RNA sequence: ACUCUGGAAAGCGCAAGCACCGAAGGAGCAAUCCGUAAAGGAGAAUCUCUCAGGUCAAUAACAGGGU
Numbered sequence: 001a002c003u004c005u006g007g008a009a010a011g012c013g014c015a016a017g018c019a020c021c022g023a024a025g026g027a028g029c030a031a032u033c034c035g036u037a038a039a040g041g042a043g044a045a046u047c048u049c050u051c052a053g054g055u056c057a058a059u060a061a062c063a064g065g066g067u
Base pairs, nucleotide, nucleotide: 001067002066003065004064005063006062019055020054021053022051023050026049027048028047032042033041
RNA: Glycine riboswitch aptamer